[Rfam]
RNA sequence: AGCUGUGCUUUCUAGGGUUCCGCGUUCAACUUGAACGGCCUGGUCCGAGAGAAAGCCUCGCCAGUUAACGCACUGGCGGCACACGGCGGGGAAAAAGCCCGGGAGAU
Numbered sequence: 001a002g003c004u005g006u007g008c009u010u011u012c013u014a015g016g017g018u019u020c021c022g023c024g025u026u027c028a029a030c031u032u033g034a035a036c037g038g039c040c041u042g043g044u045c046c047g048a049g050a051g052a053a054a055g056c057c058u059c060g061c062c063a064g065u066u067a068a069c070g071c072a073c074u075g076g077c078g079g080c081a082c083a084c085g086g087c088g089g090g091g092a093a094a095a096a097g098c099c100c101g102g103g104a105g106a107u
Stems, first nucleotide, its partner, number of pairs: 007056006015046002020043002022040001023037006058079007082102001084105001088100003
Rfam assigns this 107-nucleotide RNA sequence from Levilactobacillus suantsaii to the family "Guanidine-I riboswitch aptamer". The pairing is the family consensus, mapped onto this sequence. Rfam describes the family as follows. This family represents a conserved RNA structure found upstream of the ykkC and yxkD genes in Bacillus subtilis and related genes in other bacteria. The function of this family is unclear although it has been suggested that it may function to switch on efflux pumps and detoxification systems in response to harmful environmental molecules. The match comes from Rfam's covariance-model search (88 bits). The literature on the family includes a 2004 paper in Proc Natl Acad Sci U S A by Barrick et al., "New RNA motifs suggest an expanded scope for riboswitches in bacterial genetic control".